Notes
Rfam assigns this 90-nucleotide sequence from Leptidea sinapis to the family "mir-282 microRNA precursor family". The family has 21 seed sequences and 136 matches in Rfam 15.1. Its family is annotated with miRNA-mediated post-transcriptional gene silencing and RISC complex in the Gene Ontology. For this family Rfam cites "Direct sequencing and expression analysis of a large number of miRNAs in Aedes aegypti and a multi-species survey of novel mosquito miRNAs" (Li et al., BMC Genomics, 2009). NCBI's taxonomy places the organism under Eukaryota, Neoptera, Ditrysia, Papilionoidea, Leptidea.
Nucleotides: 090
Stems, first nucleotide, its partner, number of pairs: 012078002015075006027063004032058005
Number, partner (000 for none) and nucleotide at each position: 001000a002000u003000g004000g005000a006000g007000c008000c009000u010000u011000g012078a013077c014000c015075u016074a017073g018072c019071c020070u021000c022000u023000c024000c025000u026000u027063g028062g029061c030060u031000u032058u033057g034056u035055c036054u037000g038000u039000a040000u041000c042000u043000u044000u045000u046000g047000a048000u049000g050000u051000u052000u053000c054036a055035g056034a057033c058032a059000u060030a061029g062028c063027c064000u065000g066000u067000a068000a069000g070020a071019g072018g073017u074016u075015a076000c077013g078012u079000u080000u081000u082000g083000c084000u085000c086000c087000g088000u089000u090000u